[Rfam]
RNA sequence: GAGUUUAUGGUAUGCGCAAGUCAUUGGGUUUGUCGAAGCCUAAAGGCGUAAUGAAAGUGAGACAUUACUUGUCUGAACGUGACUGGGUGCGGCAUUCGUGCGGCCCAAGCAACGUUGCCCCGUUUCGAGGACUUGUCCUGAUGCGGAGGUUGAGCGUAUGCUAUGAGACCCGAAAGAUGGUGAACUAUGCCUGAACAGGACGAAGCCAGAGGAAACUCUGGUGGAAGUCCGAAGCGGUUCUGACGUGCAAAUCGAUCGUCUGAUUUUGGUAUAGGGGCGCAAGACUAAUCGAACCAUCUGGUAGCUGGUUU
Numbered sequence: 001g002a003g004u005u006u007a008u009g010g011u012a013u014g015c016g017c018a019a020g021u022c023a024u025u026g027g028g029u030u031u032g033u034c035g036a037a038g039c040c041u042a043a044a045g046g047c048g049u050a051a052u053g054a055a056a057g058u059g060a061g062a063c064a065u066u067a068c069u070u071g072u073c074u075g076a077a078c079g080u081g082a083c084u085g086g087g088u089g090c091g092g093c094a095u096u097c098g099u100g101c102g103g104c105c106c107a108a109g110c111a112a113c114g115u116u117g118c119c120c121c122g123u124u125u126c127g128a129g130g131a132c133u134u135g136u137c138c139u140g141a142u143g144c145g146g147a148g149g150u151u152g153a154g155c156g157u158a159u160g161c162u163a164u165g166a167g168a169c170c171c172g173a174a175a176g177a178u179g180g181u182g183a184a185c186u187a188u189g190c191c192u193g194a195a196c197a198g199g200a201c202g203a204a205g206c207c208a209g210a211g212g213a214a215a216c217u218c219u220g221g222u223g224g225a226a227g228u229c230c231g232a233a234g235c236g237g238u239u240c241u242g243a244c245g246u247g248c249a250a251a252u253c254g255a256u257c258g259u260c261u262g263a264u265u266u267u268g269g270u271a272u273a274g275g276g277g278c279g280c281a282a283g284a285c286u287a288a289u290c291g292a293a294c295c296a297u298c299u300g301g302u303a304g305c306u307g308g309u310u311u
Stems, first nucleotide, its partner, number of pairs: 005166013020047003025042006051058002076116005084107005118149002120146003124141002129136001169308002172305001176298006185274007193266003196262001198230004205222007234259004239255002242253002276286002
Dot-bracket structure: ....(((((((((((((..(((..((((((......))))))..)))...((....)).................(((((...(((((..............)))))....))))).(((((.((...(......)...))..))).))....)))))))))))))..((.(...((((((...(((((((.((((.((((...(((((((....)))))))....))))...((((.((.((........))))))))..).))).))))))).((.......))......))))))......).))...